[Rfam]
RNA sequence: AGCGCGGUCACGCCGAAUCCUGCCCGCCGUCGCUGUAACCCACCACGGGCAGGAGCGGGGGACCCAGGUUCCACGCGGCCGCCGACACCCGUCCCGACGGGACGGCGGCCACUCGGGGCGAAGCCACUGCGGUGGCGGGGCACCUUUCUGCUCCAGCCCGACAGCUCACUUCGCAGGCGCGGGAAGGAACU
Numbered sequence: 001a002g003c004g005c006g007g008u009c010a011c012g013c014c015g016a017a018u019c020c021u022g023c024c025c026g027c028c029g030u031c032g033c034u035g036u037a038a039c040c041c042a043c044c045a046c047g048g049g050c051a052g053g054a055g056c057g058g059g060g061g062a063c064c065c066a067g068g069u070u071c072c073a074c075g076c077g078g079c080c081g082c083c084g085a086c087a088c089c090c091g092u093c094c095c096g097a098c099g100g101g102a103c104g105g106c107g108g109c110c111a112c113u114c115g116g117g118g119c120g121a122a123g124c125c126a127c128u129g130c131g132g133u134g135g136c137g138g139g140g141c142a143c144c145u146u147u148c149u150g151c152u153c154c155a156g157c158c159c160g161a162c163a164g165c166u167c168a169c170u171u172c173g174c175a176g177g178c179g180c181g182g183g184a185a186g187g188a189a190c191u
Stems, first nucleotide, its partner, number of pairs: 011179004018054009055174006065115001116159003124135004138153004
A member of the RNA family "c-di-AMP riboswitch aptamer (ydaO/yuaA leader)" from Nocardioides sp. AX2bis, 191 nucleotides long. Lineage of the source: Bacteria > Actinomycetota > Actinomycetes > Nocardioidaceae > Nocardioides.